Rfam assigns this 158-nucleotide RNA sequence from Gouania willdenowi to the family "Small nucleolar RNA U109". On this family, see Gu et al., Nucleic Acids Res 2005: "A novel experimental approach for systematic identification of box H/ACA snoRNAs from eukaryotes". The match comes from Rfam's covariance-model search (46 bits). Rfam classes the family as an H/ACA-box small nucleolar RNA.
[Rfam]
RNA sequence: UUGCAUGUUGUGGCCUCGUGCCUUUGUUGGUCGUUCUUUGAAUCAGUAGAGCGAGCAACUUCACAAACAUGCUACAUUAACGCCUAAACUUUGGGAGUUAACAGGGCCACCAGUCCCUCAAGGUCAGGCUGAGUUGGUAGUAUAAUACUCCCACAUUC
Numbered sequence: 001u002u003g004c005a006u007g008u009u010g011u012g013g014c015c016u017c018g019u020g021c022c023u024u025u026g027u028u029g030g031u032c033g034u035u036c037u038u039u040g041a042a043u044c045a046g047u048a049g050a051g052c053g054a055g056c057a058a059c060u061u062c063a064c065a066a067a068c069a070u071g072c073u074a075c076a077u078u079a080a081c082g083c084c085u086a087a088a089c090u091u092u093g094g095g096a097g098u099u100a101a102c103a104g105g106g107c108c109a110c111c112a113g114u115c116c117c118u119c120a121a122g123g124u125c126a127g128g129c130u131g132a133g134u135u136g137g138u139a140g141u142a143u144a145a146u147a148c149u150c151c152c153a154c155a156u157u158c
Base pairs, nucleotide, nucleotide: 003072004071005070006069007068008067031054032053033052034051035050036049037048094151095150096149097148106138107137110133111131112130113129114128115127